[Rfam]
Source information:
This 47-nucleotide RNA belongs to the Rfam family "L31-Actinobacteria ribosomal protein leader". The sequence is in the family's curated seed alignment.
RNA sequence: CGGGCUCCGGUUCACGUUCGCGCGUCCGCGCGGGCGACCCGGCGGCU
Numbered sequence: 001c002g003g004g005c006u007c008c009g010g011u012u013c014a015c016g017u018u019c020g021c022g023c024g025u026c027c028g029c030g031c032g033g034g035c036g037a038c039c040c041g042g043c044g045g046c047u
Stems, first nucleotide, its partner, number of pairs: 003047003007042004015036009